[Rfam]
RNA sequence: ACGUUGCACUGCUGUUUUAUUUAAUGUUUGUAGGUUUUUUUCAUCCCAAAGACUUUACGGAGCAGCAGGAGAUUGAAUGAAAACUAAAAGGCAGUGGCUUGUUUUACUUUAUGAAGUUUACUGUAAGAGAAGUUUCCCACAUAU
Numbered sequence: 001a002c003g004u005u006g007c008a009c010u011g012c013u014g015u016u017u018u019a020u021u022u023a024a025u026g027u028u029u030g031u032a033g034g035u036u037u038u039u040u041u042c043a044u045c046c047c048a049a050a051g052a053c054u055u056u057a058c059g060g061a062g063c064a065g066c067a068g069g070a071g072a073u074u075g076a077a078u079g080a081a082a083a084c085u086a087a088a089a090g091g092c093a094g095u096g097g098c099u100u101g102u103u104u105u106a107c108u109u110u111a112u113g114a115a116g117u118u119u120a121c122u123g124u125a126a127g128a129g130a131a132g133u134u135u136c137c138c139a140c141a142u143a144u
Stems, first nucleotide, its partner, number of pairs: 009068009020057001023054001025052001027050004033046002091124003110120002